[Rfam]
RNA sequence: UACUAAUGAACAUCGGCUAAAAGCGUCACGUCCUGUGACAACGCCGAUGUGACCUACAUCCUGUAGG
Numbered sequence: 001u002a003c004u005a006a007u008g009a010a011c012a013u014c015g016g017c018u019a020a021a022a023g024c025g026u027c028a029c030g031u032c033c034u035g036u037g038a039c040a041a042c043g044c045c046g047a048u049g050u051g052a053c054c055u056a057c058a059u060c061c062u063g064u065a066g067g
Base pairs, nucleotide, nucleotide: 011049012048013047014046015045016044017043025039026038027037028036029035053067054066055065056064057063